The family of this 87-nucleotide sequence is "GA-cis RNA".
[Rfam]
RNA sequence: UAGAGGAGGAGCCAAUAUGACGAAGUCAUAUUGUGGAAGGGCUCCGACGCCCUGCCGCCGAGCGAAAGCGAGGGGGCGAAUCAGAUU
Numbered sequence: 001u002a003g004a005g006g007a008g009g010a011g012c013c014a015a016u017a018u019g020a021c022g023a024a025g026u027c028a029u030a031u032u033g034u035g036g037a038a039g040g041g042c043u044c045c046g047a048c049g050c051c052c053u054g055c056c057g058c059c060g061a062g063c064g065a066a067a068g069c070g071a072g073g074g075g076g077c078g079a080a081u082c083a084g085a086u087u
Stems, first nucleotide, its partner, number of pairs: 008045006015031006054077003058073002062069002
Dot-bracket structure: .......((((((.((((((.....))))))........))))))........(((.((..((....))..)).)))..........
Rfam classes the family as a small RNA.
The family's consensus secondary structure is taken from published work.